Background:
Rfam assigns this 281-nucleotide RNA from Symbiodinium sp. CCMP2592 to the family "Metazoan signal recognition particle RNA".
[Rfam]
RNA sequence: GCUGGGAUCAUAUCAUCCUGUCACCUCCGGGGCUUGGGUGGAGGAGGGCAACUACUGUCCCCAAGUCCUGCCCUUCAUGUGGAGAGCUCACCUCCCUUUAGCUUGCAGACUGCAAGGUUAGCAUAGAGUAGUCUGUGCUAACCUGGCAGGCAAAGAUUGAGGAAAGGCUCAGGCUGGCAACAGAGCAGGCAAAACUCAACACUGCAAGCAGAUGGGAGAGAGUGAGCUUGAAUGGAUGGCAGUGACCUCUGGUGGCAUGAAUGUGUGCCACUCCACUUUUU
Numbered sequence: 001g002c003u004g005g006g007a008u009c010a011u012a013u014c015a016u017c018c019u020g021u022c023a024c025c026u027c028c029g030g031g032g033c034u035u036g037g038g039u040g041g042a043g044g045a046g047g048g049c050a051a052c053u054a055c056u057g058u059c060c061c062c063a064a065g066u067c068c069u070g071c072c073c074u075u076c077a078u079g080u081g082g083a084g085a086g087c088u089c090a091c092c093u094c095c096c097u098u099u100a101g102c103u104u105g106c107a108g109a110c111u112g113c114a115a116g117g118u119u120a121g122c123a124u125a126g127a128g129u130a131g132u133c134u135g136u137g138c139u140a141a142c143c144u145g146g147c148a149g150g151c152a153a154a155g156a157u158u159g160a161g162g163a164a165a166g167g168c169u170c171a172g173g174c175u176g177g178c179a180a181c182a183g184a185g186c187a188g189g190c191a192a193a194a195c196u197c198a199a200c201a202c203u204g205c206a207a208g209c210a211g212a213u214g215g216g217a218g219a220g221a222g223u224g225a226g227c228u229u230g231a232a233u234g235g236a237u238g239g240c241a242g243u244g245a246c247c248u249c250u251g252g253u254g255g256c257a258u259g260a261a262u263g264u265g266u267g268c269c270a271c272u273c274c275a276c277u278u279u280u281u
Base pairs, nucleotide, nucleotide: 001033002032003031004019005018006017007016008015024030025029036278037277038276039275040274041273042272043271046269047268049267050266051264052263056257057256058255059254061252062251063250066245068242069241070240071239072238074236075235076234077233078232080230084229085228086227087226088225089224090223091222092218093217095216096215097214099212101209102208103207104206105205106204107203108202110149111148112147113146115144116143117142118141119140120139121138122137123136124135125134126133127132151155157199158198159197160196161195167190168189169188174183175182176181
The family's consensus secondary structure is taken from published work. A search with the family's covariance model found it, with a score of 124 bits.